The record is a 67-nucleotide RNA from Phyllostomus discolor, which matches "mir-290 microRNA precursor family" in Rfam. The source organism's lineage runs through Eukaryota, Eumetazoa, Amniota, Eutheria and Phyllostomus. A search with the family's covariance model found it, with a score of 72 bits.
[Rfam]
RNA sequence: GUGGGACUCAAACUGUGGGGGCACUUUCGGUUCUGACGAGAAAGUGCCGCCAUUUUUUGAGUUCCAC
Numbered sequence: 001g002u003g004g005g006a007c008u009c010a011a012a013c014u015g016u017g018g019g020g021g022c023a024c025u026u027u028c029g030g031u032u033c034u035g036a037c038g039a040g041a042a043a044g045u046g047c048c049g050c051c052a053u054u055u056u057u058u059g060a061g062u063u064c065c066a067c
Stems, first nucleotide, its partner, number of pairs: 004064009015053004020048009